[Rfam]
RNA sequence: UCCCCUUGGCAAUGAGCAAAGAGGCACCUUGGUGGCCGUGGUGUUCUUAUCUCAGUCAGAGGCAGAGCAGAUGGUAGUCCUCUGUUCAUCCUAGCUUGAUGUCUGGCUUGGUGGCCAAAGCUGUUUUAUGCCUAGGACACAUAA
Dot-bracket structure: (.((.(((....(((...(((.(.(((..........))).)...)))...)))..))).)).)..................(((((..........(.(...(((..((.(.......).))..))).).)..))))).....
Numbered sequence: 001u002c003c004c005c006u007u008g009g010c011a012a013u014g015a016g017c018a019a020a021g022a023g024g025c026a027c028c029u030u031g032g033u034g035g036c037c038g039u040g041g042u043g044u045u046c047u048u049a050u051c052u053c054a055g056u057c058a059g060a061g062g063c064a065g066a067g068c069a070g071a072u073g074g075u076a077g078u079c080c081u082c083u084g085u086u087c088a089u090c091c092u093a094g095c096u097u098g099a100u101g102u103c104u105g106g107c108u109u110g111g112u113g114g115c116c117a118a119a120g121c122u123g124u125u126u127u128a129u130g131c132c133u134a135g136g137a138c139a140c141a142u143a144a
Stems, first nucleotide, its partner, number of pairs: 001064001003062002006059003013054003019048003023042001025040003083139005098132001100130001104128003109123002112120001